RNA sequence: UCACGUUGAUCCCCACAGGGGAUGCAGCUCGAUUCCAGUCAGGCAACGGGGGCUGGAG
Numbered sequence: 001u002c003a004c005g006u007u008g009a010u011c012c013c014c015a016c017a018g019g020g021g022a023u024g025c026a027g028c029u030c031g032a033u034u035c036c037a038g039u040c041a042g043g044c045a046a047c048g049g050g051g052g053c054u055g056g057a058g
Base pairs, nucleotide, nucleotide: 004048005047006046007045008044010022011021012020013019014018033058034057035056036055037054038053039051040050
RNA: Glutamine-II riboswitch aptamer